Source information
Shown here is an 87-nucleotide RNA from Rhamnella rubrinervis, a member of the family "mir-156 microRNA precursor family". Rfam describes the family as follows. This family represents the plant microRNA (miRNA) precursor mir-156. A search with the family's covariance model found it, with a score of 65 bits. Pairs were carried over by alignment from the consensus structure, which was predicted with PFOLD.
[Rfam]
RNA sequence: CUGACAGAAGAGAGUGAGCACUCACUGCUGGCAAUUGUAUGAAGCGCAUACCUUUGUGCGGUGCGUGCUCACUUCUCUUUUUGUCAG
Numbered sequence: 001c002u003g004a005c006a007g008a009a010g011a012g013a014g015u016g017a018g019c020a021c022u023c024a025c026u027g028c029u030g031g032c033a034a035u036u037g038u039a040u041g042a043a044g045c046g047c048a049u050a051c052c053u054u055u056g057u058g059c060g061g062u063g064c065g066u067g068c069u070c071a072c073u074u075c076u077c078u079u080u081u082u083g084u085c086a087g
Stems, first nucleotide, its partner, number of pairs: 001087009010077003013073009023063003